[Rfam]
RNA sequence: GUUCGUGCUGAAGGCCUGUUUCCUAGGCUACAAUCGGAGGACUCGUUUCUCACCUAUUUGCCUAGGGGAAAGUCCCCGGACCUUGGGCAGAAAGUGCCGCGUGCUCACGCACGUAGACUUGUCCGCGUUUCACGCUUAGUCCGCUAAGAAGCGAACUCAGCUGGGGGAGCUGAGCGGUGUGUUGCGGAACGUUGUCCGUCUACUCUCCUAGUGACGCAGGCAGUGCGAUGUCUGUUCGCGCACCAACCACACGGGGCUCAUUCUCAGUGCGAC
Number, nucleotide and partner (000 for none) at each position: 001g000002u000003u272004c271005g270006u269007g268008c267009u266010g265011a264012a000013g000014g221015c220016c219017u218018g217019u216020u000021u000022c066023c065024u064025a063026g062027g061028c060029u000030a000031c000032a000033a000034u000035c000036g000037g051038a050039g049040g048041a047042c000043u000044c000045g000046u000047u041048u040049c039050u038051c037052a000053c000054c000055u000056a000057u000058u000059u000060g028061c027062c026063u025064a024065g023066g022067g000068g000069a000070a000071a258072g257073u000074c256075c255076c254077c253078g000079g000080a000081c000082c000083u000084u000085g000086g098087g097088c096089a095090g000091a000092a000093a000094g000095u089096g088097c087098c086099g114100c113101g112102u111103g110104c109105u000106c000107a000108c000109g104110c103111a102112c101113g100114u099115a000116g193117a192118c191119u000120u000121g000122u188123c187124c186125g185126c184127g000128u000129u000130u000131c181132a180133c179134g000135c000136u000137u000138a000139g000140u000141c177142c176143g175144c174145u000146a000147a000148g000149a000150a000151g000152c000153g000154a000155a000156c000157u000158c000159a000160g170161c169162u168163g000164g000165g000166g000167g000168a162169g161170c160171u000172g000173a000174g144175c143176g142177g141178u000179g133180u132181g131182u000183u000184g126185c125186g124187g123188a122189a000190c000191g118192u117193u116194g000195u000196c000197c000198g000199u000200c000201u000202a000203c000204u000205c000206u000207c000208c000209u000210a000211g000212u000213g000214a000215c000216g019217c018218a017219g016220g015221c014222a000223g243224u242225g241226c240227g239228a000229u000230g000231u000232c000233u000234g000235u000236u000237c000238g000239c227240g226241c225242a224243c223244c000245a000246a000247c000248c000249a000250c000251a000252c000253g077254g076255g075256g074257c072258u071259c000260a000261u000262u000263c000264u011265c010266a009267g008268u007269g006270c005271g004272a003273c000